The record is a 71-nucleotide RNA sequence from Ameiurus melas, which matches "mir-451 microRNA precursor family" in Rfam. Gene Ontology terms of the family: miRNA-mediated post-transcriptional gene silencing and RISC complex. The base pairs follow the family's consensus structure, which was predicted with RNAalifold. The literature on the family includes a 2008 paper in Biochem Pharmacol by Zhu et al., "Role of MicroRNA miR-27a and miR-451 in the regulation of MDR1/P-glycoprotein expression in human cancer cells". The organism belongs to Ameiurus, within Eukaryota.
[Rfam]
RNA sequence: UAGAGAGAGGCGGAUAAACCGUUACCAUUACUGAGUUUAGUAAUGGUAAGGGUUCUUUUGCUUCUUCUCGC
Numbered sequence: 001u002a003g004a005g006a007g008a009g010g011c012g013g014a015u016a017a018a019c020c021g022u023u024a025c026c027a028u029u030a031c032u033g034a035g036u037u038u039a040g041u042a043a044u045g046g047u048a049a050g051g052g053u054u055c056u057u058u059u060g061c062u063u064c065u066u067c068u069c070g071c
Stems, first nucleotide, its partner, number of pairs: 007064003011060003017054004022049012